RNA: Small nucleolar RNA snoR100
Organism: Nicotiana attenuata
RNA sequence: AAAUGAAGGUAGCAUGGUUAUGUGCACAAAAAUUGAAACAUAUAGAGUCGACAUGUCUGCUCCCUCUGAUUUUCCAUGAUUAGGGGGCCUGGUUUAAACUCACAUCC
Numbered sequence: 001a002a003a004u005g006a007a008g009g010u011a012g013c014a015u016g017g018u019u020a021u022g023u024g025c026a027c028a029a030a031a032a033u034u035g036a037a038a039c040a041u042a043u044a045g046a047g048u049c050g051a052c053a054u055g056u057c058u059g060c061u062c063c064c065u066c067u068g069a070u071u072u073u074c075c076a077u078g079a080u081u082a083g084g085g086g087g088c089c090u091g092g093u094u095u096a097a098a099c100u101c102a103c104a105u106c107c
Stems, first nucleotide, its partner, number of pairs: 012025004045090001047088003055080003059074001